[Rfam]
The family of this 264-nucleotide RNA from Sarcina ventriculi is "Bacterial large signal recognition particle RNA".
Rfam's curators write: The signal recognition particle (SRP) is a universally conserved ribonucleoprotein involved in the co-translational targeting of proteins to membranes.
RNA sequence: UUGUGCUAGAUGGGGAGUUAGCGGUGCCCUGUAACCUGCAAUCCGCUACAGCAGGAUUGAAUUCCCUACCGAGGUCUUAAUUUGUGGUGUCGACCUAUGCAAGUGAUGUUGAGAGUUAGGCCCCACGCGAUGGAACCCUGUGAACCUCGUCAGGUCCGGAAGGAAGCAGCGAUAAGCAGUCACUUUCAUGUGCCGUGGAUAAGUCUAAUUUGAGUUAACUACAUAGGUAACGGCCAUAGAUUAUUGCCAGAGUAGGGUGCACAA
Numbered sequence: 001u002u003g004u005g006c007u008a009g010a011u012g013g014g015g016a017g018u019u020a021g022c023g024g025u026g027c028c029c030u031g032u033a034a035c036c037u038g039c040a041a042u043c044c045g046c047u048a049c050a051g052c053a054g055g056a057u058u059g060a061a062u063u064c065c066c067u068a069c070c071g072a073g074g075u076c077u078u079a080a081u082u083u084g085u086g087g088u089g090u091c092g093a094c095c096u097a098u099g100c101a102a103g104u105g106a107u108g109u110u111g112a113g114a115g116u117u118a119g120g121c122c123c124c125a126c127g128c129g130a131u132g133g134a135a136c137c138c139u140g141u142g143a144a145c146c147u148c149g150u151c152a153g154g155u156c157c158g159g160a161a162g163g164a165a166g167c168a169g170c171g172a173u174a175a176g177c178a179g180u181c182a183c184u185u186u187c188a189u190g191u192g193c194c195g196u197g198g199a200u201a202a203g204u205c206u207a208a209u210u211u212g213a214g215u216u217a218a219c220u221a222c223a224u225a226g227g228u229a230a231c232g233g234c235c236a237u238a239g240a241u242u243a244u245u246g247c248c249a250g251a252g253u254a255g256g257g258u259g260c261a262c263a264a
Stems, first nucleotide, its partner, number of pairs: 001264006009058003012030004017025003035055005064257006073248003079242010093228001095226005103219002105216003113211009123198005128190002131188005138179004147172004155164003

Description
The base pairs follow the family's consensus structure, which is taken from published work.